The family of this 72-nucleotide sequence from Plectus sambesii is "mir-50 microRNA precursor family". Rfam links the family to the GO terms RISC complex and miRNA-mediated post-transcriptional gene silencing.
RNA sequence: GUCGCGCUGAUAUGUUUGGUAUUCUUGGGUUGAGAUGGUGCAACCAGACAUAUCAGACAUAUCGGCCGACGG
Number, nucleotide and partner (000 for none) at each position: 001g000002u000003c000004g000005c000006g000007c000008u064009g063010a062011u061012a060013u059014g058015u057016u056017u055018g054019g053020u052021a051022u050023u000024c000025u000026u000027g000028g045029g044030u043031u042032g000033a000034g000035a000036u000037g000038g000039u000040g000041c000042a031043a030044c029045c028046a000047g000048a000049c000050a022051u021052a020053u019054c018055a017056g016057a015058c014059a013060u012061a011062u010063c009064g008065g000066c000067c000068g000069a000070c000071g000072g000